[Rfam]
RNA sequence: CAUCCAGCAUCCGAGGGCGGAAGUGGGGGACCCAAGGUUCCCGGACCGGCCCGUGGCGCUUCCGCGCGCCUCGGUGCGGUCCUUGGGGCGAAGUCGCGCCAGCGACAGGGCAGCUUCCAGCCCGAGCCCGACAGCUAACCUCACAGGCGUGCAGGAAGGACUG
Numbered sequence: 001c002a003u004c005c006a007g008c009a010u011c012c013g014a015g016g017g018c019g020g021a022a023g024u025g026g027g028g029g030a031c032c033c034a035a036g037g038u039u040c041c042c043g044g045a046c047c048g049g050c051c052c053g054u055g056g057c058g059c060u061u062c063c064g065c066g067c068g069c070c071u072c073g074g075u076g077c078g079g080u081c082c083u084u085g086g087g088g089c090g091a092a093g094u095c096g097c098g099c100c101a102g103c104g105a106c107a108g109g110g111c112a113g114c115u116u117c118c119a120g121c122c123c124g125a126g127c128c129c130g131a132c133a134g135c136u137a138a139c140c141u142c143a144c145a146g147g148c149g150u151g152c153a154g155g156a157a158g159g160a161c162u163g
Stems, first nucleotide, its partner, number of pairs: 003022001005020001023144006033085005086129003094105004108123004
Notes: A member of the RNA family "c-di-AMP riboswitch aptamer (ydaO/yuaA leader)" from Kribbella amoyensis, 163 nucleotides long. NCBI's taxonomy places the organism under Bacteria, Actinomycetes, Propionibacteriales, Kribbellaceae, Kribbella.